RNA sequence: AAGCAGAUUGGCCUUCUCUUCCCGGUUCUUCCCAGACUUGGGAAAAGCCAGGUUGAGGGGUGGGGAGAAGGAAAAA
Numbered sequence: 001a002a003g004c005a006g007a008u009u010g011g012c013c014u015u016c017u018c019u020u021c022c023c024g025g026u027u028c029u030u031c032c033c034a035g036a037c038u039u040g041g042g043a044a045a046a047g048c049c050a051g052g053u054u055g056a057g058g059g060g061u062g063g064g065g066a067g068a069a070g071g072a073a074a075a076a
Stems, first nucleotide, its partner, number of pairs: 014059005021052002024049002029044006
mir-320 microRNA precursor family: a 76-nucleotide sequence from Propithecus coquereli.
The match comes from Rfam's covariance-model search (63 bits).
Rfam links the family to the GO terms negative regulation of gene expression, long-term synaptic potentiation and cellular response to glucose stimulus.
The literature on the family includes a 2006 paper in Genome Res by Berezikov et al., "Many novel mammalian microRNA candidates identified by extensive cloning and RAKE analysis".
Rfam 15.1 lists 659 matches to the family in 129 species.